Shown here is a 33-nucleotide sequence, a member of the family "S4-Bacteroidia ribosomal protein leader". It is annotated as a cis-regulatory leader.

RNA sequence: GGUUGCACCAAAUCCUCUCUGCAAUCGCGGCUG
Numbered sequence: 001g002g003u004u005g006c007a008c009c010a011a012a013u014c015c016u017c018u019c020u021g022c023a024a025u026c027g028c029g030g031c032u033g
Base pairs, nucleotide, nucleotide: 001026002025003024004023005022006021007020